This 152-nucleotide RNA sequence belongs to the Rfam family "Clostridiales-1 RNA".
The sequence is in the family's curated seed alignment.
RNA sequence: AGAUACCAGGGUCAAAAGGUAUAAAUCCACAUGAGCUUGCUCAUAGGUGGGUGAAAGACCUUGGGACCCGCCCCGAUAUGAGCAUAAAAGUGGGAUGAUAAUCCCACGAUAUGCGAAUAUUGGGGAGAAGUGUCAAUAUAUAUAAGUUGUUU
Numbered sequence: 001a002g003a004u005a006c007c008a009g010g011g012u013c014a015a016a017a018g019g020u021a022u023a024a025a026u027c028c029a030c031a032u033g034a035g036c037u038u039g040c041u042c043a044u045a046g047g048u049g050g051g052u053g054a055a056a057g058a059c060c061u062u063g064g065g066a067c068c069c070g071c072c073c074c075g076a077u078a079u080g081a082g083c084a085u086a087a088a089a090g091u092g093g094g095a096u097g098a099u100a101a102u103c104c105c106a107c108g109a110u111a112u113g114c115g116a117a118u119a120u121u122g123g124g125g126a127g128a129a130g131u132g133u134c135a136a137u138a139u140a141u142a143u144a145a146g147u148u149g150u151u152u
Base pairs, nucleotide, nucleotide: 001152002151003150004149005148010068011067012066013065017061018060019059020058022056025052026051027050028049029048030047031044032043033042034041035040072124073123074122075121076120077119078118079117082114083113084112085111090107091106092105093104094103095102096101128141130137131136